SAM riboswitch aptamer (S box leader): a 101-nucleotide RNA from Marvinbryantia formatexigens. Rfam's curators put it in the seed alignment. Its family is annotated with regulation of gene expression in the Gene Ontology. Pairs were carried over by alignment from the consensus structure, which is taken from published work. Rfam describes the family as follows. The SAM riboswitch is found upstream of a number of genes which code for proteins involved in methionine or cysteine biosynthesis in Gram-positive bacteria. The SAM riboswitch acts at the level of transcription termination control. The predicted structure consists of a complex stem-loop region followed by a single stem loop terminator region.
[Rfam]
RNA sequence: CUCUUAUUCAGAGUGGUGGAGAUACAGAGGGUCUGUGAAGCCACGGCAACCCCGCAUAGACGGAAGGUGCCAGCCUGAGCGAUUAAUUCGAACAAUAAGAG
Numbered sequence: 001c002u003c004u005u006a007u008u009c010a011g012a013g014u015g016g017u018g019g020a021g022a023u024a025c026a027g028a029g030g031g032u033c034u035g036u037g038a039a040g041c042c043a044c045g046g047c048a049a050c051c052c053c054g055c056a057u058a059g060a061c062g063g064a065a066g067g068u069g070c071c072a073g074c075c076u077g078a079g080c081g082a083u084u085a086a087u088u089c090g091a092a093c094a095a096u097a098a099g100a101g
Stems, first nucleotide, its partner, number of pairs: 001101008013044005021033003030076001045071004050067002052063003080090003